[Rfam]
The family of this 331-nucleotide sequence from Ramlibacter lithotrophicus is "Bacterial RNase P class A". Rfam describes the family as follows. Ribonuclease P (RNase P) is a ubiquitous endoribonuclease, found in archaea, bacteria and eukarya as well as chloroplasts and mitochondria. Lineage of the source: Bacteria > Pseudomonadati > Betaproteobacteria > Burkholderiales > Ramlibacter. The match comes from Rfam's covariance-model search (198 bits). The family's consensus secondary structure is taken from published work. Rfam classes the family as a ribozyme.
RNA sequence: GAAGCCCGCCAGACCGCCGCUGGUGCAAGGCCCGAGAGGGCGCACUGGAGGAACGUCCGGACUGCACAGGGCAGCGUAGCAGGCAACACCUGUCCACCGCGAGGUGAGGAUCAGAGCAACAGAGACGAGUCGAUCCGUGGUUUCGGCCGCGGGUCGGGUGAAACGGGCAAUCUCUACGCGCAGCAAUACCAAGUAGGCACACGUUGACGGGGCCCCCGGAGUGUGCGGGUAGGUAGCACCGAGCCGUGCUGGCGACAGCCGGCCCAGAGGAAUGGCGGUCACGUCCGGGCAACCGGACGCACAGAAUCCGGCGUACCGGCGGGCUUCACAC
Numbered sequence: 001g002a003a004g005c006c007c008g009c010c011a012g013a014c015c016g017c018c019g020c021u022g023g024u025g026c027a028a029g030g031c032c033c034g035a036g037a038g039g040g041c042g043c044a045c046u047g048g049a050g051g052a053a054c055g056u057c058c059g060g061a062c063u064g065c066a067c068a069g070g071g072c073a074g075c076g077u078a079g080c081a082g083g084c085a086a087c088a089c090c091u092g093u094c095c096a097c098c099g100c101g102a103g104g105u106g107a108g109g110a111u112c113a114g115a116g117c118a119a120c121a122g123a124g125a126c127g128a129g130u131c132g133a134u135c136c137g138u139g140g141u142u143u144c145g146g147c148c149g150c151g152g153g154u155c156g157g158g159u160g161a162a163a164c165g166g167g168c169a170a171u172c173u174c175u176a177c178g179c180g181c182a183g184c185a186a187u188a189c190c191a192a193g194u195a196g197g198c199a200c201a202c203g204u205u206g207a208c209g210g211g212g213c214c215c216c217c218g219g220a221g222u223g224u225g226c227g228g229g230u231a232g233g234u235a236g237c238a239c240c241g242a243g244c245c246g247u248g249c250u251g252g253c254g255a256c257a258g259c260c261g262g263c264c265c266a267g268a269g270g271a272a273u274g275g276c277g278g279u280c281a282c283g284u285c286c287g288g289g290c291a292a293c294c295g296g297a298c299g300c301a302c303a304g305a306a307u308c309c310g311g312c313g314u315a316c317c318g319g320c321g322g323g324c325u326u327c328a329c330a331c
Base pairs, nucleotide, nucleotide: 001327002326003325004324005323006322007321008320009319010318012280013279014278015277016276017275018274020048021047022046023045024044025043026042053314054313055312057311058310059309060308061307062183063182064181065180069215070214071213072212074179075178076177077176078175079093080092081091082090083089094108095106096105097104098103109174110173114172115171116168117167131157133154134153135152136151137150138149139148140147141146187235188234189233190232197226198225199224200223201222202221208218209217210216243263244262245261246260248259249258250257251256